The family of this 65-nucleotide RNA sequence from Janthinobacterium sp. Marseille is "Betaproteobacteria toxic small RNA". On this family, see Kimelman et al., Genome Res 2012: "A vast collection of microbial genes that are toxic to bacteria". The family has 51 seed sequences and 951 matches in Rfam 15.1. Rfam describes the family as follows. Overexpression in amino aid rich medium attenuates growth, suggesting role in repressing amino acid intake and metabolism.
RNA sequence: UGUCUCCUCUAUGUCUCCUCCUUUGAUAUAGAUUCAGCCCGCCUCCUUUGAGCGGGCUUUUUUUU
Numbered sequence: 001u002g003u004c005u006c007c008u009c010u011a012u013g014u015c016u017c018c019u020c021c022u023u024u025g026a027u028a029u030a031g032a033u034u035c036a037g038c039c040c041g042c043c044u045c046c047u048u049u050g051a052g053c054g055g056g057c058u059u060u061u062u063u064u065u
Base pairs, nucleotide, nucleotide: 008032009031010030011029012028013027014026015025036058037057038056039055040054041053042052